[Rfam]
RNA sequence: ACACCGAAAGGAGGUGAUCGGACCGAUGUACUCAGUCCGGACCAGUGAGGUGGCUGCGGGCUAACGGCCCGCCGUCGUACUCCAGCAGUGCUCGGCCGGGUCGAAGGCCGAAAUCCCAGCAGUCACCGCCCCGCAGGCUCGCCGGUAAGUCCGGCCGGCUCCUCUCCGGAGGAACCAGAGCCUGCGGGGUUCUGCUG
Numbered sequence: 001a002c003a004c005c006g007a008a009a010g011g012a013g014g015u016g017a018u019c020g021g022a023c024c025g026a027u028g029u030a031c032u033c034a035g036u037c038c039g040g041a042c043c044a045g046u047g048a049g050g051u052g053g054c055u056g057c058g059g060g061c062u063a064a065c066g067g068c069c070c071g072c073c074g075u076c077g078u079a080c081u082c083c084a085g086c087a088g089u090g091c092u093c094g095g096c097c098g099g100g101u102c103g104a105a106g107g108c109c110g111a112a113a114u115c116c117c118a119g120c121a122g123u124c125a126c127c128g129c130c131c132c133g134c135a136g137g138c139u140c141g142c143c144g145g146u147a148a149g150u151c152c153g154g155c156c157g158g159c160u161c162c163u164c165u166c167c168g169g170a171g172g173a174a175c176c177a178g179a180g181c182c183u184g185c186g187g188g189g190u191u192c193u194g195c196u197g
Base pairs, nucleotide, nucleotide: 014057015056016055018053059109060108061107062106065103067101068100069099070098072095073094074093128190129189130188131187132186133185134184135183136182137181138180139179141159142158143157144156145155146154
Record summary
The record is a 197-nucleotide sequence from Streptomyces paludis, which matches "Actinobacteria sRNA Ms_IGR-5" in Rfam. A search with the family's covariance model found it, with a score of 66 bits. The source organism's lineage runs through Bacteria, Bacillati, Actinomycetota, Streptomycetaceae and Streptomyces. Rfam classes the family as a small RNA.